The family of this 73-nucleotide RNA sequence from Carassius auratus is "mir-216 microRNA precursor family".
Rfam links the family to the GO terms miRNA-mediated post-transcriptional gene silencing and RISC complex.
Clan: mir-216 clan.
The organism belongs to Carassius, within Eukaryota.
Rfam 15.1 lists 1,667 matches to the family in 655 species.
The family's consensus secondary structure was predicted with WAR.

RNA sequence: CGACUGGGUAAUCUCUGCAGGCAACUGUGAUGUGAAUACAGUCUCACAUUGACCUGUAGGGGUUGAGUAGUCU
Numbered sequence: 001c002g003a004c005u006g007g008g009u010a011a012u013c014u015c016u017g018c019a020g021g022c023a024a025c026u027g028u029g030a031u032g033u034g035a036a037u038a039c040a041g042u043c044u045c046a047c048a049u050u051g052a053c054c055u056g057u058a059g060g061g062g063u064u065g066a067g068u069a070g071u072c073u
Base pairs, nucleotide, nucleotide: 003071004070005069006068009065010064011063012062013061014060015059016058017057020055021054024050026048027047028046029045030044